[Rfam]
RNA sequence: CCCGGACCCCCGCGGCGUCCAUCUCAUCAACCCCCCCAGGGCCGGAAGGCAGCAAGGGUCCGUGAGCUCUGACGGGUGCGGGGGUCCCCUCAU
Numbered sequence: 001c002c003c004g005g006a007c008c009c010c011c012g013c014g015g016c017g018u019c020c021a022u023c024u025c026a027u028c029a030a031c032c033c034c035c036c037c038a039g040g041g042c043c044g045g046a047a048g049g050c051a052g053c054a055a056g057g058g059u060c061c062g063u064g065a066g067c068u069c070u071g072a073c074g075g076g077u078g079c080g081g082g083g084g085u086c087c088c089c090u091c092a093u
Stems, first nucleotide, its partner, number of pairs: 004089002007084006013076001016074004023066005033058003041050003
The family of this 93-nucleotide RNA is "Bacterial small signal recognition particle RNA". Rfam classes the family as a non-coding RNA gene. A search with the family's covariance model found it, with a score of 61 bits. From the family's description: The signal recognition particle (SRP) is a universally conserved ribonucleoprotein involved in the co-translational targeting of proteins to membranes.